Shown here is a 70-nucleotide RNA from Nannospalax galili, a member of the family "mir-3960 microRNA precursor family".
The base pairs follow the family's consensus structure, which was predicted with RNAalifold.
Gene Ontology terms of the family: miRNA-mediated post-transcriptional gene silencing and RISC complex.
RNA sequence: GCCGCGGCUUCCCGCGCCCCCCAUCGGGGCUGCCAACAGCAGUGGCGGCGGCGGAGGCGGGGGCAGCGGC
Numbered sequence: 001g002c003c004g005c006g007g008c009u010u011c012c013c014g015c016g017c018c019c020c021c022c023a024u025c026g027g028g029g030c031u032g033c034c035a036a037c038a039g040c041a042g043u044g045g046c047g048g049c050g051g052c053g054g055a056g057g058c059g060g061g062g063g064c065a066g067c068g069g070c
Stems, first nucleotide, its partner, number of pairs: 001070005007064002010062006016052003029049006037042001